[Rfam]
RNA sequence: AAAAUCCAACCUGAGGAAAGGUUAGCCGCCACCUCAGAUUUGGACCUUGCAUCCUGUCUGGUAACAGGCAGUGGUGAAGCUAUGGGAUGGGAUAUUGGGCUGCAGCGCAAGUGAAGGGAUACAGCCUCGAAAUAUUCGUUGUCCCGGUGGCGACGUUUUUCAUUUGACGGAAGGCAGCACACUCAUCACCGAUAGUCCGAAUUUCCAGUCUUGGAAUAUAGCAGGGAGCUCUGGGGCAUGGCAAGGUGGUGCGAGCCCGGCGGGGUCUGAGACCG
Numbered sequence: 001a002a003a004a005u006c007c008a009a010c011c012u013g014a015g016g017a018a019a020g021g022u023u024a025g026c027c028g029c030c031a032c033c034u035c036a037g038a039u040u041u042g043g044a045c046c047u048u049g050c051a052u053c054c055u056g057u058c059u060g061g062u063a064a065c066a067g068g069c070a071g072u073g074g075u076g077a078a079g080c081u082a083u084g085g086g087a088u089g090g091g092a093u094a095u096u097g098g099g100c101u102g103c104a105g106c107g108c109a110a111g112u113g114a115a116g117g118g119a120u121a122c123a124g125c126c127u128c129g130a131a132a133u134a135u136u137c138g139u140u141g142u143c144c145c146g147g148u149g150g151c152g153a154c155g156u157u158u159u160u161c162a163u164u165u166g167a168c169g170g171a172a173g174g175c176a177g178c179a180c181a182c183u184c185a186u187c188a189c190c191g192a193u194a195g196u197c198c199g200a201a202u203u204u205c206c207a208g209u210c211u212u213g214g215a216a217u218a219u220a221g222c223a224g225g226g227a228g229c230u231c232u233g234g235g236g237c238a239u240g241g242c243a244a245g246g247u248g249g250u251g252c253g254a255g256c257c258c259g260g261c262g263g264g265g266u267c268u269g270a271g272a273c274c275g
Stems, first nucleotide, its partner, number of pairs: 012036005020030003039090001045085002049080001050076004055070006124266006144260004149256001150175001151173001154169004180255001182253001184251007
The family of this 275-nucleotide sequence from a Candidatus Methanophagaceae archaeon is "Group II catalytic intron D1-D4-6".
Its family is annotated with Group II intron splicing in the Gene Ontology.
From the family's description: Group II introns are found in rRNA, tRNA and mRNA of organelles in fungi, plants and protists, and also in mRNA in bacteria.
Pairs were carried over by alignment from the consensus structure.
The literature on the family includes a 2001 paper in Trends Genet by Bonen and Vogel, "The ins and outs of group II introns".